[Rfam]
RNA sequence: GCGCGGGGACGACCCCGCGCCUUUUCGUGUUUCCGGGGACGACCCCG
Numbered sequence: 001g002c003g004c005g006g007g008g009a010c011g012a013c014c015c016c017g018c019g020c021c022u023u024u025u026c027g028u029g030u031u032u033c034c035g036g037g038g039a040c041g042a043c044c045c046c047g
Stems, first nucleotide, its partner, number of pairs: 001020008034047005
This 47-nucleotide RNA sequence from Caulobacter sp. Root655 belongs to the Rfam family "Guanidine-II riboswitch aptamer (mini-ykkC)". Gene Ontology term of the family: regulation of gene expression. Taxonomically the source falls in Caulobacter (Bacteria, Pseudomonadati, Pseudomonadota, Caulobacteraceae).